[Rfam]
Nucleotides: 108
Base pairs, nucleotide, nucleotide: 002106003105004104005103006102012096013095014094015093016092017091018090019089020088021087022086023085024084025083026082027081028080029069030068031067033065034064035063049059050058051057052056
Number, partner (000 for none) and nucleotide at each position: 001000u002106u003105a004104c005103u006102g007000g008000a009000c010000g011000c012096u013095u014094u015093a016092g017091c018090u019089a020088u021087u022086g023085a024084a025083c026082u027081g028080u029069u030068u031067u032000a033065u034064c035063a036000c037000u038000c039000u040000c041000u042000g043000u044000c045000a046000a047000a048000g049059a050058a051057u052056a053000a054000a055000u056052u057051g058050u059049u060000c061000u062000u063035u064034g065033a066000c067031a068030g069029a070000g071000a072000g073000u074000g075000a076000c077000a078000a079000a080028a081027c082026a083025g084024u085023u086022c087021a088020a089019u090018a091017g092016c093015u094014a095013a096012a097000a098000c099000g100000u101000c102006c103005a104004g105003u106002a107000u108000a
A member of the RNA family "mir-8517 microRNA precursor family" from Plutella xylostella, 108 nucleotides long. Gene Ontology terms of the family: RISC complex and miRNA-mediated post-transcriptional gene silencing. The match comes from Rfam's covariance-model search (104 bits).